[Rfam]
RNA sequence: GCCUGACGCCUUUUGGGCGUUUCCUCCCUAGACUUCUGACCGUAUCGUCGAGGCGAUGCGGUCUUUUUUUGACGGCAG
Number, nucleotide and partner (000 for none) at each position: 001g000002c000003c000004u000005g000006a000007c000008g018009c017010c016011u015012u000013u000014u000015g011016g010017g009018c008019g000020u000021u000022u000023c000024c000025u000026c000027c000028c000029u000030a000031g000032a000033c000034u000035u000036c000037u000038g063039a062040c061041c060042g059043u058044a057045u056046c055047g000048u000049c000050g000051a000052g000053g000054c000055g046056a045057u044058g043059c042060g041061g040062u039063c038064u000065u000066u000067u000068u000069u000070u000071g000072a000073c000074g000075g000076c000077a000078g000

Rfam assigns this 78-nucleotide RNA sequence from Nitratireductor pacificus to the family "Makes More Granules Regulator RNA (mmgR)". A reference for the family is Corbino et al. (2005), "Evidence for a second class of S-adenosylmethionine riboswitches and other regulatory RNA motifs in alpha-proteobacteria", Genome Biol. Pairs were carried over by alignment from the consensus structure. The family's RNA type in Rfam is small RNA.